MIR403 microRNA precursor family: a 131-nucleotide RNA from Populus trichocarpa. The family's consensus secondary structure was predicted with WAR. The family has 13 seed sequences and 215 matches in Rfam 15.1. For this family Rfam cites "High throughput approaches reveal splicing of primary microRNA transcripts and tissue specific expression of mature microRNAs in Vitis vinifera" (Mica et al., BMC Genomics, 2009).
RNA sequence: GCAUAUUUCAGGUUUGUGCAUGAAUCUAAUAUAGCUAAAAAAAUCCCAUCAAACACAAAUUAAAAUACUAGAUAGCAAUCAGCACUAGUUUAGUAUAGUAUUAGAUUCACGCACAAACUCGUAAUCUGUCU
Numbered sequence: 001g002c003a004u005a006u007u008u009c010a011g012g013u014u015u016g017u018g019c020a021u022g023a024a025u026c027u028a029a030u031a032u033a034g035c036u037a038a039a040a041a042a043a044u045c046c047c048a049u050c051a052a053a054c055a056c057a058a059a060u061u062a063a064a065a066u067a068c069u070a071g072a073u074a075g076c077a078a079u080c081a082g083c084a085c086u087a088g089u090u091u092a093g094u095a096u097a098g099u100a101u102u103a104g105a106u107u108c109a110c111g112c113a114c115a116a117a118c119u120c121g122u123a124a125u126c127u128g129u130c131u
Stems, first nucleotide, its partner, number of pairs: 001129003005125003011119009021109006028102003047098001060087001